[Rfam]
RNA: FMN riboswitch aptamer (RFN element)
RNA sequence: ACAGGUCCUCGGGGCGGGGUGAAACUCCCCACCGGCGGUGAUGGCCUUGAGGGACUUCCGGGAGGAUGGACCCAAGGCCGCAGCCCGCGAGCGCCGUCCGGCUGACGCUGGAAGGGACAGCAGAUCCGGUGCAACUCCGGAGCCGACGGUUACAGUCCGGAUGAAAGAGAACCUGG
Numbered sequence: 001a002c003a004g005g006u007c008c009u010c011g012g013g014g015c016g017g018g019g020u021g022a023a024a025c026u027c028c029c030c031a032c033c034g035g036c037g038g039u040g041a042u043g044g045c046c047u048u049g050a051g052g053g054a055c056u057u058c059c060g061g062g063a064g065g066a067u068g069g070a071c072c073c074a075a076g077g078c079c080g081c082a083g084c085c086c087g088c089g090a091g092c093g094c095c096g097u098c099c100g101g102c103u104g105a106c107g108c109u110g111g112a113a114g115g116g117a118c119a120g121c122a123g124a125u126c127c128g129g130u131g132c133a134a135c136u137c138c139g140g141a142g143c144c145g146a147c148g149g150u151u152a153c154a155g156u157c158c159g160g161a162u163g164a165a166a167g168a169g170a171a172c173c174u175g176g
Stems, first nucleotide, its partner, number of pairs: 003174004008169003017029003031156002033145002035088004091121002125141005147159003